[Rfam]
RNA sequence: AAGCUUAUGAUAUUAUCUGCACUCUUUGUGGCUGUUGGGUCCGCCACAUUUGUCUGAUCUUCGAAUGAAAUAAUGAAAUUUAAGUGCAUCUGAGCUU
Numbered sequence: 001a002a003g004c005u006u007a008u009g010a011u012a013u014u015a016u017c018u019g020c021a022c023u024c025u026u027u028g029u030g031g032c033u034g035u036u037g038g039g040u041c042c043g044c045c046a047c048a049u050u051u052g053u054c055u056g057a058u059c060u061u062c063g064a065a066u067g068a069a070a071u072a073a074u075g076a077a078a079u080u081u082a083a084g085u086g087c088a089u090c091u092g093a094g095c096u097u
Stems, first nucleotide, its partner, number of pairs: 001097007

The record is a 97-nucleotide RNA sequence from Spinacia oleracea, which matches "small nucleolar RNA snoR114" in Rfam. For this family Rfam cites "Mining small RNA sequencing data: a new approach to identify small nucleolar RNAs in Arabidopsis" (Chen and Wu, Nucleic Acids Res, 2009). Taxonomically the source falls in Spinacia (Eukaryota, Viridiplantae, Streptophyta, Amaranthaceae). Rfam classes the family as a C/D-box small nucleolar RNA. Rfam links the family to the GO terms nucleolus and RNA processing. Rfam 15.1 lists 1,645 matches to the family in 183 species.